[Rfam]
Nucleotides: 109
Stems, first nucleotide, its partner, number of pairs: 003106001005104003013096003017092006024085004029080005
Number, partner (000 for none) and nucleotide at each position: 001000c002000u003106c004000u005104g006103u007102g008000g009000u010000c011000u012000u013096c014095c015094a016000c017092a018091g019090c020089u021088u022087u023000c024085u025084u026083g027082a028000a029080c030079u031078g032077c033076a034000u035000c036000u037000g038000u039000g040000a041000g042000a043000c044000a045000c046000a047000g048000u049000g050000c051000c052000c053000c054000u055000c056000u057000g058000c059000c060000u061000u062000u063000u064000a065000c066000u067000u068000g069000c070000a071000c072000c073000c074000a075000g076033u077032g078031c079030a080029g081000u082027u083026c084025a085024a086000u087022a088021a089020a090019g091018c092017u093000g094015u095014g096013g097000g098000a099000a100000a101000c102007u103006a104005c105000u106003g107000a108000g109000a